[Rfam]
RNA sequence: UGAUCCUUAGGCAAACCUGUUGAAAAGCAGGGACGCAAAGCUACGAGUCUAAGUGCUGAAGCAUAUUGACAGUCGGGUUGCACACA
Dot-bracket structure: (..(......((...((((((....))))))..[))..((((.((((((..................))).])))))))..)...)
Numbered sequence: 001u002g003a004u005c006c007u008u009a010g011g012c013a014a015a016c017c018u019g020u021u022g023a024a025a026a027g028c029a030g031g032g033a034c035g036c037a038a039a040g041c042u043a044c045g046a047g048u049c050u051a052a053g054u055g056c057u058g059a060a061g062c063a064u065a066u067u068g069a070c071a072g073u074c075g076g077g078u079u080g081c082a083c084a085c086a
Stems, first nucleotide, its partner, number of pairs: 001086001004082001011036002016031006034072001039079004044075003047070003